[Rfam]
Shown here is a 159-nucleotide sequence from Atopostipes suicloacalis, a member of the family "Ribosomal protein L10 leader".
This family is a putative r-protein leader autoregulatory structure found in B. subtilis and other low-GC Gram-positive bacteria.
The literature on the family includes a 1994 paper in Prog Nucleic Acid Res Mol Biol by Zengel and Lindahl, "Diverse mechanisms for regulating ribosomal protein synthesis in Escherichia coli".
The source organism's lineage runs through Bacteria, Bacillota, Carnobacteriaceae, Atopostipes and Atopostipes suicloacalis.
Gene Ontology term of the family: regulation of gene expression.
It scores 70 bits against the family's covariance model.
RNA sequence: AUUGAAUACCUAACAUUACCGAAGACAGUGUGUGGCGUAAGCCUUAAUAUCAUGCCGAGGAAGAUGUAAUUUUGAUAAGUUUAAUGAUUUAAACGAUAUUAUCAUGCAUUUAACACUCCCUUAUGUCAUCGGUGACUAAGGGAGUUUUUUAUUACAAAA
Numbered sequence: 001a002u003u004g005a006a007u008a009c010c011u012a013a014c015a016u017u018a019c020c021g022a023a024g025a026c027a028g029u030g031u032g033u034g035g036c037g038u039a040a041g042c043c044u045u046a047a048u049a050u051c052a053u054g055c056c057g058a059g060g061a062a063g064a065u066g067u068a069a070u071u072u073u074g075a076u077a078a079g080u081u082u083a084a085u086g087a088u089u090u091a092a093a094c095g096a097u098a099u100u101a102u103c104a105u106g107c108a109u110u111u112a113a114c115a116c117u118c119c120c121u122u123a124u125g126u127c128a129u130c131g132g133u134g135a136c137u138a139a140g141g142g143a144g145u146u147u148u149u150u151a152u153u154a155c156a157a158a159a
Stems, first nucleotide, its partner, number of pairs: 028055005034043003116144008